[Rfam]
RNA sequence: GGGGACGUAGCGAAGUGGCUCAACGCGCCGGCCUGUCACGCCGGAGAUCGCGGGUUCAAAUCCCGUCGUCCCCG
Numbered sequence: 001g002g003g004g005a006c007g008u009a010g011c012g013a014a015g016u017g018g019c020u021c022a023a024c025g026c027g028c029c030g031g032c033c034u035g036u037c038a039c040g041c042c043g044g045a046g047a048u049c050g051c052g053g054g055u056u057c058a059a060a061u062c063c064c065g066u067c068g069u070c071c072c073c074g
Stems, first nucleotide, its partner, number of pairs: 001073007010026003028044005050066005